RNA: FMN riboswitch aptamer (RFN element)
Organism: Desulfallas thermosapovorans
Nucleotides: 130
Base pairs, nucleotide, nucleotide: 004127005126006125007124008123009122010121017029018028019027031110032109033100034099035062036061037060038059057098058097065076066075067074080096081095082094083093084092102113103112104111
Number, partner (000 for none) and nucleotide at each position: 001000a002000u003000a004127a005126a006125c007124c008123u009122u010121c011000a012000g013000g014000g015000a016000c017029u018028g019027g020000u021000g022000a023000a024000a025000u026000u027019c028018c029017g030000u031110a032109c033100c034099g035062g036061c037060g038059g039000u040000g041000a042000g043000g044000a045000u046000a047000u048000a049000c050000u051000a052000u053000c054000c055000a056000a057098g058097c059038c060037c061036g062035c063000g064000a065076g066075c067074c068000c069000c070000a071000c072000g073000g074067g075066g076065c077000a078000g079000a080096u081095c082094c083093g084092g085000u086000g087000c088000a089000a090000u091000u092084c093083c094082g095081g096080g097058g098057c099034c100033g101000a102113c103112a104111g105000u106000a107000a108000a109032g110031u111104c112103u113102g114000g115000a116000u117000g118000g119000g120000a121010g122009a123008a124007g125006g126005u127004u128000g129000u130000u